[Rfam]
RNA sequence: GACGUUGCGUAGAUAAGAUAAGUACAUGCAUGCAUCAUUUAGAUAGAGAACUCUGGUCGGUGAAAAAGAGGAAUGAUAAAACAUGGAAAAUGGUCUUGGAGCUUUUGGUUGUGAGUUGACAAACGAGCAGUCAACGGAGAUGUCCGUUAUCCCAUCGAUUCAUGUCAUAUGAAUAUUCGAGUGAUUCUUUGAUAAAUCAAAGAAUAAUGAAGGUGGUACCGCGAUUAUUUCGUCCUUCCA
Numbered sequence: 001g002a003c004g005u006u007g008c009g010u011a012g013a014u015a016a017g018a019u020a021a022g023u024a025c026a027u028g029c030a031u032g033c034a035u036c037a038u039u040u041a042g043a044u045a046g047a048g049a050a051c052u053c054u055g056g057u058c059g060g061u062g063a064a065a066a067a068g069a070g071g072a073a074u075g076a077u078a079a080a081a082c083a084u085g086g087a088a089a090a091u092g093g094u095c096u097u098g099g100a101g102c103u104u105u106u107g108g109u110u111g112u113g114a115g116u117u118g119a120c121a122a123a124c125g126a127g128c129a130g131u132c133a134a135c136g137g138a139g140a141u142g143u144c145c146g147u148u149a150u151c152c153c154a155u156c157g158a159u160u161c162a163u164g165u166c167a168u169a170u171g172a173a174u175a176u177u178c179g180a181g182u183g184a185u186u187c188u189u190u191g192a193u194a195a196a197u198c199a200a201a202g203a204a205u206a207a208u209g210a211a212g213g214u215g216g217u218a219c220c221g222c223g224a225u226u227a228u229u230u231c232g233u234c235c236u237u238c239c240a
Stems, first nucleotide, its partner, number of pairs: 007102002015097004025085004037074003051070004106133007135146003184205007210237004221233004
Dot-bracket structure: ......((......((((......((((........(((...........((((............)))).))).......))))........))))...))...(((((((..............))))))).(((......))).....................................(((((((........)))))))....((((.......((((.....))))))))...
The family of this 240-nucleotide RNA sequence from Enterococcus saccharolyticus is "T-box leader". The family has 48 seed sequences and 19,395 matches in Rfam 15.1. The family's RNA type in Rfam is cis-regulatory leader. It scores 102 bits against the family's covariance model.